[Rfam]
RNA sequence: CUACUCCCCCCGUCCCAUAAUGUAAGACGUUUUCUGACACUACACUAGUGUCAGAAAACGUCUUACAUUAUGGGACAGAGGGGGUAU
Numbered sequence: 001c002u003a004c005u006c007c008c009c010c011c012g013u014c015c016c017a018u019a020a021u022g023u024a025a026g027a028c029g030u031u032u033u034c035u036g037a038c039a040c041u042a043c044a045c046u047a048g049u050g051u052c053a054g055a056a057a058a059c060g061u062c063u064u065a066c067a068u069u070a071u072g073g074g075a076c077a078g079a080g081g082g083g084g085u086a087u
Stems, first nucleotide, its partner, number of pairs: 003085003007081002010078001013075005019069023